[Rfam]
RNA sequence: AGGUCGGCCCCGCGCUGUUGCCAGACCCCCGACCCGGCAACCGCGCGGGGCCUUUCU
Numbered sequence: 001a002g003g004u005c006g007g008c009c010c011c012g013c014g015c016u017g018u019u020g021c022c023a024g025a026c027c028c029c030c031g032a033c034c035c036g037g038c039a040a041c042c043g044c045g046c047g048g049g050g051c052c053u054u055u056c057u
Stems, first nucleotide, its partner, number of pairs: 002056002007051009017041006
RNA: F6 TB sRNA
Organism: Nocardia transvalensis